The family of this 75-nucleotide sequence from Alligator mississippiensis is "Mammalian CPEB3 ribozyme". The family's consensus secondary structure is taken from published work. Its family is annotated with RNA nuclease activity in the Gene Ontology.
RNA sequence: UUGCAACUUCCAGGCCAUAGCAGAAGUGCUCGUGGCAUGGACCUGUCAGAUUCCAAAAAAUCUGCAAAUUCUACU
Numbered sequence: 001u002u003g004c005a006a007c008u009u010c011c012a013g014g015c016c017a018u019a020g021c022a023g024a025a026g027u028g029c030u031c032g033u034g035g036c037a038u039g040g041a042c043c044u045g046u047c048a049g050a051u052u053c054c055a056a057a058a059a060a061u062c063u064g065c066a067a068a069u070u071c072u073a074c075u
Stems, first nucleotide, its partner, number of pairs: 013043002015040002019075002022072004026038003047064006